Rfam assigns this 191-nucleotide sequence from Streptomyces sp. SID5785 to the family "c-di-AMP riboswitch aptamer (ydaO/yuaA leader)".
RNA sequence: GGGCAGCCCCCGCCGAGUUCCGUACGCCGAGAGGCAGGAAACCGGGGACCCACCGACCUUUGGGGUGAAUCGGUCAACAGCCCGGCAGCGCCGGGUGGUUGGCCGUAGGGCAGCCUUCCGUUCGACGCGUACGACUCGUACCACCGGCCCGAACCCGACAGCUAACCCGGUAGGCGGACCACGGAAGGAGU
Numbered sequence: 001g002g003g004c005a006g007c008c009c010c011c012g013c014c015g016a017g018u019u020c021c022g023u024a025c026g027c028c029g030a031g032a033g034g035c036a037g038g039a040a041a042c043c044g045g046g047g048a049c050c051c052a053c054c055g056a057c058c059u060u061u062g063g064g065g066u067g068a069a070u071c072g073g074u075c076a077a078c079a080g081c082c083c084g085g086c087a088g089c090g091c092c093g094g095g096u097g098g099u100u101g102g103c104c105g106u107a108g109g110g111c112a113g114c115c116u117u118c119c120g121u122u123c124g125a126c127g128c129g130u131a132c133g134a135c136u137c138g139u140a141c142c143a144c145c146g147g148c149c150c151g152a153a154c155c156c157g158a159c160a161g162c163u164a165a166c167c168c169g170g171u172a173g174g175c176g177g178a179c180c181a182c183g184g185a186a187g188g189a190g191u
Stems, first nucleotide, its partner, number of pairs: 011176004018040003041171006051062002063156003071105008108150004